[Rfam]
RNA: Ribosomal protein L10 leader
Organism: Paenibacillus sp. Root444D2
Nucleotides: 155
Stems, first nucleotide, its partner, number of pairs: 028055005034043002116140010
Number, partner (000 for none) and nucleotide at each position: 001000u002000a003000a004000a005000a006000a007000u008000g009000a010000a011000u012000a013000u014000g015000c016000a017000a018000a019000c020000c021000g022000u023000a024000g025000a026000c027000a028055g029054u030053a031052g032051g033000u034043g035042c036000c037000a038000a039000c040000g041000u042035g043034c044000u045000u046000a047000a048000u049000u050000u051032c052031c053030u054029a055028c056000c057000g058000a059000g060000g061000u062000g063000u064000u065000a066000u067000g068000a069000u070000a071000u072000a073000u074000a075000u076000a077000g078000c079000g080000a081000u082000u083000u084000c085000u086000u087000u088000g089000u090000a091000c092000a093000u094000c095000a096000g097000g098000g099000a100000a101000a102000a103000a104000g105000u106000g107000a108000a109000c110000a111000c112000a113000u114000c115000a116140u117139g118138c119137c120136u121135u122134c123133g124132u125131a126000g127000c128000g129000u130000c131125u132124a133123c134122g135121a136120a137119g138118g139117c140116a141000u142000u143000u144000c145000u146000u147000a148000u149000u150000u151000u152000a153000g154000a155000u